[Rfam]
RNA sequence: CUUCCUGCUUUAGUACCGCCCAUCUGUUUUCCCUUUGGGUGUGCGGCUAUGCUAACAGGAUAGAGCAACUGUCUGUCAAAGUCUGAGGGGACAGAUGGCCACACACUCCCACUGCCCCUACAUGAAUUGACAGCACAAUUAAAA
Numbered sequence: 001c002u003u004c005c006u007g008c009u010u011u012a013g014u015a016c017c018g019c020c021c022a023u024c025u026g027u028u029u030u031c032c033c034u035u036u037g038g039g040u041g042u043g044c045g046g047c048u049a050u051g052c053u054a055a056c057a058g059g060a061u062a063g064a065g066c067a068a069c070u071g072u073c074u075g076u077c078a079a080a081g082u083c084u085g086a087g088g089g090g091a092c093a094g095a096u097g098g099c100c101a102c103a104c105a106c107u108c109c110c111a112c113u114g115c116c117c118c119u120a121c122a123u124g125a126a127u128u129g130a131c132a133g134c135a136c137a138a139u140u141a142a143a144a
Stems, first nucleotide, its partner, number of pairs: 004059004016046004075131004093119002
The family of this 144-nucleotide RNA sequence from Chanos chanos is "Small nucleolar RNA SNORA29". The source organism's lineage runs through Eukaryota, Craniata, Neopterygii, Otomorpha and Chanos. The base pairs follow the family's consensus structure, which was predicted with PFOLD. From the family's description: ACA29 is a member of the H/ACA class of snoRNA that guide the sites of modification of uridines to pseudouridines. Its Rfam clan is "SNORA20 clan". The match comes from Rfam's covariance-model search (54 bits). For this family Rfam cites "RNomics: an experimental approach that identifies 201 candidates for novel, small, non-messenger RNAs in mouse" (Huttenhofer et al., EMBO J, 2001).